[Rfam]
RNA sequence: AAAUUCUGGAUGAGUGUGAGGCGUUGGAUUGGUUUUCAUUCAAUUUGAGCCCCACAUUCAUCAAGCAUUAGU
Numbered sequence: 001a002a003a004u005u006c007u008g009g010a011u012g013a014g015u016g017u018g019a020g021g022c023g024u025u026g027g028a029u030u031g032g033u034u035u036u037c038a039u040u041c042a043a044u045u046u047g048a049g050c051c052c053c054a055c056a057u058u059c060a061u062c063a064a065g066c067a068u069u070a071g072u
Stems, first nucleotide, its partner, number of pairs: 004067001006065002009062010020051003024048009
RNA: MIR6151 microRNA precursor family